[Rfam]
RNA sequence: ACCCCUUCUGUCGUGUAUCCCUGAUUAAUGCAGCCUCAGAUGCUUUG
Numbered sequence: 001a002c003c004c005c006u007u008c009u010g011u012c013g014u015g016u017a018u019c020c021c022u023g024a025u026u027a028a029u030g031c032a033g034c035c036u037c038a039g040a041u042g043c044u045u046u047g
Base pairs, nucleotide, nucleotide: 010025011024012023013022032044033043034042